[Rfam]
The family of this 87-nucleotide sequence from Saccharomyces cerevisiae is "tRNA". Rfam links the family to the GO term triplet codon-amino acid adaptor activity. It is one of the family's seed sequences. Taxonomically the source falls in Saccharomyces (Eukaryota, Opisthokonta, Saccharomycetes, Saccharomycetales).
RNA sequence: GGAUGGUUGACUGAGUGGUUUAAAGUGUGAUAUUUGAGCUAUCAUUAGUCUUUAUUGGCUACGUAGGUUCAAAUCCUACAUCAUCCG
Numbered sequence: 001g002g003a004u005g006g007u008u009g010a011c012u013g014a015g016u017g018g019u020u021u022a023a024a025g026u027g028u029g030a031u032a033u034u035u036g037a038g039c040u041a042u043c044a045u046u047a048g049u050c051u052u053u054a055u056u057g058g059c060u061a062c063g064u065a066g067g068u069u070c071a072a073a074u075c076c077u078a079c080a081u082c083a084u085c086c087g
Base pairs, nucleotide, nucleotide: 001086002085003084004083005082006081007080010026011025012024028044029043030042031041032040063079064078065077066076067075